The record is a 75-nucleotide RNA sequence, which matches "HDV ribozyme from F. prausnitzii" in Rfam.
Its family is annotated with catalytic activity in the Gene Ontology.
The family's consensus secondary structure is taken from published work.
On this family, see Webb et al., Science 2009: "Widespread occurrence of self-cleaving ribozymes".
RNA sequence: GGGGGACGAAGUCGAACUGAACACCUCCAUCGUGGUGUCCCCCGGGCAACGCUUGCAAAAGCGGCUAACGUUCAG
Dot-bracket structure: (((((((...............(((........))))))))))......(((((....)))))............
Numbered sequence: 001g002g003g004g005g006a007c008g009a010a011g012u013c014g015a016a017c018u019g020a021a022c023a024c025c026u027c028c029a030u031c032g033u034g035g036u037g038u039c040c041c042c043c044g045g046g047c048a049a050c051g052c053u054u055g056c057a058a059a060a061g062c063g064g065c066u067a068a069c070g071u072u073c074a075g
Stems, first nucleotide, its partner, number of pairs: 001043007023036003050063005